[Rfam]
RNA sequence: CAAUAACAUACGGAUCUUUAAGGGUGACGGCACUUCCCGUAGAAGGGAGGUGUUGCGUGAUGACAACAUUUGAAGCGCUGAUGCUUAUGUUUGUUUUUGGCGGUUUGAUUGUGUCAAUUACAUCACGAGACAAGAAAUAAACCACCCUUAAGCGCUGGCAUGCAGUUAGGGUGGUCCAUCCUCUGAAAGUCGGCUGUCCCUCUUAGGGAGUCCAGUUAUUGCAGACCAUGGGUGUUACGAGCACCUGUG
Numbered sequence: 001c002a003a004u005a006a007c008a009u010a011c012g013g014a015u016c017u018u019u020a021a022g023g024g025u026g027a028c029g030g031c032a033c034u035u036c037c038c039g040u041a042g043a044a045g046g047g048a049g050g051u052g053u054u055g056c057g058u059g060a061u062g063a064c065a066a067c068a069u070u071u072g073a074a075g076c077g078c079u080g081a082u083g084c085u086u087a088u089g090u091u092u093g094u095u096u097u098u099g100g101c102g103g104u105u106u107g108a109u110u111g112u113g114u115c116a117a118u119u120a121c122a123u124c125a126c127g128a129g130a131c132a133a134g135a136a137a138u139a140a141a142c143c144a145c146c147c148u149u150a151a152g153c154g155c156u157g158g159c160a161u162g163c164a165g166u167u168a169g170g171g172u173g174g175u176c177c178a179u180c181c182u183c184u185g186a187a188a189g190u191c192g193g194c195u196g197u198c199c200c201u202c203u204u205a206g207g208g209a210g211u212c213c214a215g216u217u218a219u220u221g222c223a224g225a226c227c228a229u230g231g232g233u234g235u236u237a238c239g240a241g242c243a244c245c246u247g248u249g
Stems, first nucleotide, its partner, number of pairs: 001221005007215001009209001010197004015192001017152008026142001030053003034049005062124002068118001075090003100115001162183001164182002198208004227249010
RNA: BsrG